[Rfam]
RNA: TPP riboswitch aptamer (THI element)
Organism: Micromonospora pattaloongensis
RNA sequence: CACAUCCGACAGGGGAGCGCACAGCGCUGAGAGUGCGGGUCACGCCCGCAGACCCUCGAACCUGAUCUGGGUAAUGCCAGCGCAGGGAGUUCGGUCGAUCCUCCAG
Dot-bracket structure: .....((((.((((..((((...))))......(((((((...)))))))..))))....((((..((((......))))..))))....))))............